[Rfam]
RNA sequence: AUCCCUCGCAGUGGCGAUAUCAUAGCCUAUGAGGUCUAGCCGAGGCGUGAUUAUUGCUGGUUGAAAACUUAACCCAUACCCCGCCGGACGACUGCAAUACAGUCGCCCGGGCAAUUUUUGAUAGUCUCGUCAGAGA
Numbered sequence: 001a002u003c004c005c006u007c008g009c010a011g012u013g014g015c016g017a018u019a020u021c022a023u024a025g026c027c028u029a030u031g032a033g034g035u036c037u038a039g040c041c042g043a044g045g046c047g048u049g050a051u052u053a054u055u056g057c058u059g060g061u062u063g064a065a066a067a068c069u070u071a072a073c074c075c076a077u078a079c080c081c082c083g084c085c086g087g088a089c090g091a092c093u094g095c096a097a098u099a100c101a102g103u104c105g106c107c108c109g110g111g112c113a114a115u116u117u118u119u120g121a122u123a124g125u126c127u128c129g130u131c132a133g134a135g136a
Stems, first nucleotide, its partner, number of pairs: 019051005025046003033041003083112003086108002089105006125136004
RNA: U4 spliceosomal RNA
Organism: Esox lucius